This 199-nucleotide RNA sequence from Firmicutes bacterium CAG:129 belongs to the Rfam family "6S / SsrS RNA". Lineage of the source: Bacteria > Bacillati > Bacillota.
RNA sequence: AUUACCCUGCGUGGUUCGUGAUAGGCUCUUUAUAAACCCACAUUUCGUCAUACGGGACGCCGGUACGCUCCGGUGGUUUGCAGGCCUCCCGGCCGCCUUUUGCGGCCGGACGUUGGAAGCAGUAAAACCGGACAGAGGCGACCCACCUGCAAUUCAUGUGCAGGUUUGGCGGGGUCUACACGGCCAACGCGGGGUAACU
Numbered sequence: 001a002u003u004a005c006c007c008u009g010c011g012u013g014g015u016u017c018g019u020g021a022u023a024g025g026c027u028c029u030u031u032a033u034a035a036a037c038c039c040a041c042a043u044u045u046c047g048u049c050a051u052a053c054g055g056g057a058c059g060c061c062g063g064u065a066c067g068c069u070c071c072g073g074u075g076g077u078u079u080g081c082a083g084g085c086c087u088c089c090c091g092g093c094c095g096c097c098u099u100u101u102g103c104g105g106c107c108g109g110a111c112g113u114u115g116g117a118a119g120c121a122g123u124a125a126a127a128c129c130g131g132a133c134a135g136a137g138g139c140g141a142c143c144c145a146c147c148u149g150c151a152a153u154u155c156a157u158g159u160g161c162a163g164g165u166u167u168g169g170c171g172g173g174g175u176c177u178a179c180a181c182g183g184c185c186a187a188c189g190c191g192g193g194g195u196a197a198c199u
Stems, first nucleotide, its partner, number of pairs: 002197010012186004017182003033168006054144003058140004069132006080120002085116002089112001